[Rfam]
RNA sequence: AGGCAGCCUUCUUCCUAAACUAUGAAACAGUAGGAAGACAGGUGUUAAUCUGCUCGCAUACUGAAACCAACUUUUGCUCUUCAGAUUUGCUGAGGCUGGUGUCCUCUGAAGCUGGUCUAGUAUGCCUAAGUACAUU
Numbered sequence: 001a002g003g004c005a006g007c008c009u010u011c012u013u014c015c016u017a018a019a020c021u022a023u024g025a026a027a028c029a030g031u032a033g034g035a036a037g038a039c040a041g042g043u044g045u046u047a048a049u050c051u052g053c054u055c056g057c058a059u060a061c062u063g064a065a066a067c068c069a070a071c072u073u074u075u076g077c078u079c080u081u082c083a084g085a086u087u088u089g090c091u092g093a094g095g096c097u098g099g100u101g102u103c104c105u106c107u108g109a110a111g112c113u114g115g116u117c118u119a120g121u122a123u124g125c126c127u128a129a130g131u132a133c134a135u136u
Base pairs, nucleotide, nucleotide: 002046003045004044005043007042008041010038011037012036013035014034015033016032017031071130072129073128076125077124083118084117085116086115087114089112090111091110094104095103
Small nucleolar RNA snoR77: a 136-nucleotide RNA sequence from Coffea canephora. The literature on the family includes a 2002 paper in Curr Biol by Marker et al., "Experimental RNomics: identification of 140 candidates for small non-messenger RNAs in the plant Arabidopsis thaliana". It scores 97 bits against the family's covariance model. Rfam links the family to the GO terms RNA processing and nucleolus.